RNA: Burkholderia sRNA Bp1_Cand738_SIPHT
Organism: Paraburkholderia acidiphila
RNA sequence: CGAAAAGCCAGCGCAAAGGGGCGCUGACAAGAACAACCAAUCUAGACCGUGUGCAAGCCGUGCAGGGGUUCGGCAAAACGGCGACGCGUUGCGUCUGAAGGGCCGGGAAGGUGGUUAAAAUUUCAAACCCUGCAACCAAUGUGGACGGAUUCUAGCAGUCUGUUAUAGAUCGUCAAUACUAUAGAUUGUCAAAUCUAUAACUAAUUGUAA
Number, nucleotide and partner (000 for none) at each position: 001c000002g000003a000004a000005a000006a000007g000008c000009c026010a025011g024012c023013g022014c021015a000016a000017a000018g000019g000020g000021g014022c013023g012024c011025u010026g009027a000028c000029a000030a000031g000032a000033a000034c000035a000036a000037c000038c000039a000040a000041u000042c000043u000044a000045g000046a000047c114048c113049g112050u111051g000052u000053g000054c000055a000056a000057g074058c073059c072060g071061u000062g000063c000064a000065g000066g000067g000068g000069u000070u000071c060072g059073g058074c057075a000076a000077a000078a000079c000080g000081g000082c000083g095084a094085c093086g092087c091088g000089u000090u000091g087092c086093g085094u084095c083096u000097g000098a000099a000100g000101g000102g000103c000104c000105g000106g000107g000108a000109a000110g000111g050112u049113g048114g047115u000116u000117a000118a000119a000120a000121u000122u000123u000124c000125a000126a000127a000128c000129c000130c000131u000132g000133c000134a000135a000136c000137c000138a000139a000140u178141g177142u176143g000144g000145a173146c172147g171148g170149a000150u000151u169152c168153u167154a166155g000156c000157a000158g000159u000160c000161u000162g000163u000164u000165a000166u154167a153168g152169a151170u148171c147172g146173u145174c000175a000176a142177u141178a140179c000180u000181a000182u000183a000184g000185a000186u000187u000188g000189u000190c000191a000192a000193a000194u000195c000196u000197a000198u000199a000200a000201c000202u000203a000204a000205u000206u000207g000208u000209a000210a000